[Rfam]
Nucleotides: 235
Base pairs, nucleotide, nucleotide: 008095015091016090017089022081023080024079025078026077033069034068035067044066045065046064047063048062049061099125100124101123102122103121104120105119127138128137129136176198177197178196179195180194181193182192183191184190204232205231206230207229215228216227217226218225
Number, partner (000 for none) and nucleotide at each position: 001000g002000c003000a004000a005000a006000u007000g008095c009000g010000a011000u012000g013000a014000u015091g016090g017089a018000a019000c020000a021000a022081a023080g024079a025078u026077a027000c028000u029000g030000a031000a032000g033069g034068u035067c036000u037000u038000c039000a040000g041000a042000g043000a044066g045065c046064c047063g048062g049061c050000g051000g052000g053000u054000g055000g056000u057000g058000c059000a060000a061049g062048c063047c064046g065045g066044u067035g068034g069033c070000g071000g072000a073000c074000a075000g076000c077026u078025g079024u080023c081022u082000u083000u084000a085000g086000c087000g088000c089017u090016c091015c092000u093000g094000a095008g096000a097000u098000a099125u100124u101123g102122u103121g104120u105119c106000g107000a108000a109000a110000c111000u112000a113000a114000c115000a116000g117000u118000a119105g120104g121103c122102a123101c124100a125099a126000u127138c128137g129136g130000g131000u132000c133000a134000c135000u136129c137128c138127g139000u140000u141000a142000c143000c144000a145000g146000u147000g148000u149000u150000c151000c152000u153000g154000u155000c156000u157000u158000g159000a160000u161000c162000g163000g164000c165000a166000g167000g168000a169000u170000a171000a172000u173000g174000a175000g176198g177197c178196u179195g180194c181193a182192u183191c184190u185000g186000u187000a188000a189000u190184g191183g192182a193181u194180g195179c196178g197177g198176u199000g200000a201000a202000u203000u204232a205231g206230g207229g208000u209000g210000g211000u212000a213000c214000c215228a216227c217226g218225a219000c220000a221000a222000c223000u224000c225218u226217c227216g228215u229207c230206c231205c232204u233000u234000a235000c